[Rfam]
RNA sequence: UGGUGAGGUAGAGGCGCGGUAUUUAAUAGUCUAUAGCAGAGCGUAAAAAGGCGUGAUGAAGCUAUUGAGAAGGAAAUAUCGCCGAAAUAUAUAAUAUCCUUUUAUAUUAUAUGUUGGGUCUGCAGUUAAGAGCUGCAGGACUGUCUCAAUAAACUGCCCGGUUUAUUGAGGGGAACUAUCUCGUAA
Numbered sequence: 001u002g003g004u005g006a007g008g009u010a011g012a013g014g015c016g017c018g019g020u021a022u023u024u025a026a027u028a029g030u031c032u033a034u035a036g037c038a039g040a041g042c043g044u045a046a047a048a049a050g051g052c053g054u055g056a057u058g059a060a061g062c063u064a065u066u067g068a069g070a071a072g073g074a075a076a077u078a079u080c081g082c083c084g085a086a087a088u089a090u091a092u093a094a095u096a097u098c099c100u101u102u103u104a105u106a107u108u109a110u111a112u113g114u115u116g117g118g119u120c121u122g123c124a125g126u127u128a129a130g131a132g133c134u135g136c137a138g139g140a141c142u143g144u145c146u147c148a149a150u151a152a153a154c155u156g157c158c159c160g161g162u163u164u165a166u167u168g169a170g171g172g173g174a175a176c177u178a179u180c181u182c183g184u185a186a
Stems, first nucleotide, its partner, number of pairs: 006181006016082009031067001033065005086115012116142002119139008144171010